Rfam assigns this 115-nucleotide sequence from Arthrobacter sp. MYb227 to the family "SAM (S-adenosyl methionine) riboswitch aptamer".
Rfam links the family to the GO terms S-adenosylmethionine metabolic process and regulation of gene expression.
RNA sequence: AAUCAAGAGUGUCAAUGUCAAAGCCCUGGCUCAUUGACCGGCAACCCUCUCACGGUAGUGGGGUGCUCCAGGUGACGAUUCGGCCCACCGGAACCCUGGAGGGCAAGUACCGCAC
Numbered sequence: 001a002a003u004c005a006a007g008a009g010u011g012u013c014a015a016u017g018u019c020a021a022a023g024c025c026c027u028g029g030c031u032c033a034u035u036g037a038c039c040g041g042c043a044a045c046c047c048u049c050u051c052a053c054g055g056u057a058g059u060g061g062g063g064u065g066c067u068c069c070a071g072g073u074g075a076c077g078a079u080u081c082g083g084c085c086c087a088c089c090g091g092a093a094c095c096c097u098g099g100a101g102g103g104c105a106a107g108u109a110c111c112g113c114a115c
Base pairs, nucleotide, nucleotide: 001080002079003078004077009039011038012037013036014035015034016033022031023030040067041066042065045063046062047061049058050057083104084103085102086101088099089098090097091096